[Rfam]
RNA sequence: GAAGCAAGCUGGGCAAUCGCCGGUGCUCGGUCGAAAGACUGCACGGGAGGAAAGUCCGAGCUCCGCAGGGCAGGGUGCCGGAUAACGUCCGGCGGGAGCAAUCCUAGGGACAGUGCCACAGAAAUGAGGACCGCCGAUGGUGUCGGCAAUGCCGGCAUACAGGCAAGGAUGCAACGGUGCGGUAAGAGCGCACCAGCAACCCGGGAACGGGUUGGCUAGGUAAACCCCACCUGGAGCAAGACCGGAUAGGAGUGCGCACGUGGUGGCCCGCCACGCACUCGGGUAGGUUGCUUGAGCCAAUUGGCAACAGUUGGCCUAGAUAGAUGAUUGCCACUCCGUUCGUGCGAGGCAGAC
Numbered sequence: 001g002a003a004g005c006a007a008g009c010u011g012g013g014c015a016a017u018c019g020c021c022g023g024u025g026c027u028c029g030g031u032c033g034a035a036a037g038a039c040u041g042c043a044c045g046g047g048a049g050g051a052a053a054g055u056c057c058g059a060g061c062u063c064c065g066c067a068g069g070g071c072a073g074g075g076u077g078c079c080g081g082a083u084a085a086c087g088u089c090c091g092g093c094g095g096g097a098g099c100a101a102u103c104c105u106a107g108g109g110a111c112a113g114u115g116c117c118a119c120a121g122a123a124a125u126g127a128g129g130a131c132c133g134c135c136g137a138u139g140g141u142g143u144c145g146g147c148a149a150u151g152c153c154g155g156c157a158u159a160c161a162g163g164c165a166a167g168g169a170u171g172c173a174a175c176g177g178u179g180c181g182g183u184a185a186g187a188g189c190g191c192a193c194c195a196g197c198a199a200c201c202c203g204g205g206a207a208c209g210g211g212u213u214g215g216c217u218a219g220g221u222a223a224a225c226c227c228c229a230c231c232u233g234g235a236g237c238a239a240g241a242c243c244g245g246a247u248a249g250g251a252g253u254g255c256g257c258a259c260g261u262g263g264u265g266g267c268c269c270g271c272c273a274c275g276c277a278c279u280c281g282g283g284u285a286g287g288u289u290g291c292u293u294g295a296g297c298c299a300a301u302u303g304g305c306a307a308c309a310g311u312u313g314g315c316c317u318a319g320a321u322a323g324a325u326g327a328u329u330g331c332c333a334c335u336c337c338g339u340u341c342g343u344g345c346g347a348g349g350c351a352g353a354c
Stems, first nucleotide, its partner, number of pairs: 012332007020047002023044004061236004068269004073232005078092005093107001094105004108227002113225002115221003131168002133164003138159002176194006196216001197214007240289004250280006260274005296315008
Dot-bracket structure: ...........(((((((.((.((((..............)))).)).............((((...[[[[.((((((((((.....)))))(((((....)))).)((...(((((.............(((((..((..................))..)))..)).......((((((.......)))))).((((((((....))))))).)..)))..)))))))))))))...((((......((((((....(((((.]]]]))))))))))).....))))......((((((((....))))))))..........)))))))......................